RNA sequence: UAAUGAUAAAGGCAAACUUAUCGAAAGGUAAGGACGCAAAGCCACGGGUCUAAGGUUCACAAGCUCUGAACAAUGACAGCCGGGCUGCCAAG
Number, nucleotide and partner (000 for none) at each position: 001u000002a000003a000004u000005g000006a000007u000008a000009a000010a000011g000012g037013c036014a000015a000016a000017c032018u031019u030020a029021u028022c027023g000024a000025a000026a000027g022028g021029u020030a019031a018032g017033g000034a000035c000036g013037c012038a000039a000040a086041g085042c084043c083044a000045c082046g081047g080048g077049u076050c075051u000052a000053a000054g000055g071056u070057u069058c068059a000060c000061a000062a000063g000064c000065u000066c000067u000068g058069a057070a056071c055072a000073a000074u000075g050076a049077c048078a000079g000080c047081c046082g045083g043084g042085c041086u040087g000088c000089c000090a000091a000092g000